The record is a 132-nucleotide RNA sequence from Gordonia aichiensis, which matches "ALIL pseudoknot" in Rfam. Rfam links the family to the GO term positive regulation of translational frameshifting. It is annotated as a cis-regulatory element. Pairs were carried over by alignment from the consensus structure, which is taken from published work. A reference for the family is Mazauric et al. (2008), "Apical loop-internal loop RNA pseudoknots: a new type of stimulator of -1 translational frameshifting in bacteria", J Biol Chem.
RNA sequence: AGCGUCUUUCUUCGGGGCGGAGCUCGACCGCCAACACAAGAAGUAGUCACGUUCAUCGAUGAUCAGCGGGCAGAAUUCGGGGUUGAGCCCAUCCUCGCCGUCCUGCGCAGCGCAGGUGUGCGGAUGGCCCCG
Number, nucleotide and partner (000 for none) at each position: 001a000002g000003c000004g000005u000006c000007u000008u000009u000010c000011u000012u000013c000014g000015g000016g032017g031018c030019g029020g028021a000022g000023c000024u000025c000026g000027a000028c020029c019030g018031c017032c016033a000034a000035c000036a000037c000038a000039a000040g000041a000042a000043g000044u000045a000046g000047u000048c000049a000050c000051g000052u000053u000054c000055a000056u000057c000058g000059a000060u000061g000062a000063u000064c000065a000066g000067c000068g000069g000070g000071c000072a000073g000074a000075a000076u000077u000078c132079g131080g130081g129082g128083u000084u000085g000086a000087g000088c000089c127090c126091a000092u124093c123094c122095u000096c120097g119098c118099c000100g000101u000102c000103c000104u000105g000106c000107g000108c000109a000110g000111c000112g000113c000114a000115g000116g000117u000118g098119u097120g096121c000122g094123g093124a092125u000126g090127g089128c082129c081130c080131c079132g078